[Rfam]
RNA sequence: GUUUUUCUCAAAUUAGUAUCUUUGAACCAUUGGAAACAUC
Numbered sequence: 001g002u003u004u005u006u007c008u009c010a011a012a013u014u015a016g017u018a019u020c021u022u023u024g025a026a027c028c029a030u031u032g033g034a035a036a037c038a039u040c
Stems, first nucleotide, its partner, number of pairs: 008025005

Background
The record is a 40-nucleotide RNA sequence from Prevotella heparinolytica, which matches "CRISPR RNA direct repeat element" in Rfam. Pairs were carried over by alignment from the consensus structure, which was predicted with WAR. The organism belongs to Prevotella, within Bacteria.